[Rfam]
Overview: Rfam assigns this 119-nucleotide RNA sequence to the family "LOOT RNA". By type it is a small RNA.
RNA sequence: UGCCUAAACCUUUAGAGAUAAAGGCAUGGCGAGAAGGCCGUUCAAGAUAAAAAACCCAUCAUGUAGAAUUUGUCUUGAACGGCCGUAUCGGGAAACUGGUACGGAGGGCUUUGGUCCUC
Dot-bracket structure: ((((....((((((....))))))...))))......(((((((((((..(.....(.....).....)..))))))))))).((((((((....))))))))((((((....))))))
Numbered sequence: 001u002g003c004c005u006a007a008a009c010c011u012u013u014a015g016a017g018a019u020a021a022a023g024g025c026a027u028g029g030c031g032a033g034a035a036g037g038c039c040g041u042u043c044a045a046g047a048u049a050a051a052a053a054a055c056c057c058a059u060c061a062u063g064u065a066g067a068a069u070u071u072g073u074c075u076u077g078a079a080c081g082g083c084c085g086u087a088u089c090g091g092g093a094a095a096c097u098g099g100u101a102c103g104g105a106g107g108g109c110u111u112u113g114g115u116c117c118u119c
Stems, first nucleotide, its partner, number of pairs: 001031004009024006038082011051069001057063001084103008104119006